Record summary: The family of this 62-nucleotide RNA sequence from Gorilla gorilla is "U7 small nuclear RNA". The family's consensus secondary structure was predicted with PFOLD. A search with the family's covariance model found it, with a score of 43 bits. Rfam's curators write: Animal histone pre-mRNAs are spliced by a different mechanism than nuclear pre-mRNAs and self-splicing introns. This processing involves the U7 snRNP, which contains only one RNA species: U7. The 5' end of U7 RNA is thought to base-pair to a conserved spacer element downstream of the cleavage site in histone pre-mRNA. This family contains a number of annotated U7 pseudogenes. The source organism's lineage runs through Eukaryota, Primates, Haplorrhini, Gorilla and Gorilla gorilla.
RNA sequence: AACCGGUUACAGCUCUUCUAGAAUUUGUCCAGCAGUUCUCCUGGAUUUUACAGGAAAACCCC
Numbered sequence: 001a002a003c004c005g006g007u008u009a010c011a012g013c014u015c016u017u018c019u020a021g022a023a024u025u026u027g028u029c030c031a032g033c034a035g036u037u038c039u040c041c042u043g044g045a046u047u048u049u050a051c052a053g054g055a056a057a058a059c060c061c062c
Stems, first nucleotide, its partner, number of pairs: 035060001036057002039055005